[Rfam]
RNA sequence: UCUCAGGCUGUGACCGUCUCGAGGAAAGAAGCACUUUCUGUUGUCUAAAGAAAAGGAAGUGUUUCCUUCCCGAGGGUUACGGUUUGAGA
Numbered sequence: 001u002c003u004c005a006g007g008c009u010g011u012g013a014c015c016g017u018c019u020c021g022a023g024g025a026a027a028g029a030a031g032c033a034c035u036u037u038c039u040g041u042u043g044u045c046u047a048a049a050g051a052a053a054a055g056g057a058a059g060u061g062u063u064u065c066c067u068u069c070c071c072g073a074g075g076g077u078u079a080c081g082g083u084u085u086g087a088g089a
Base pairs, nucleotide, nucleotide: 001089002088003087004086005085007083008082009081010080011079012078013077014076017073018072021069022068023067024066028065029064030063031062032061033060034059035058036057037056038055041054042053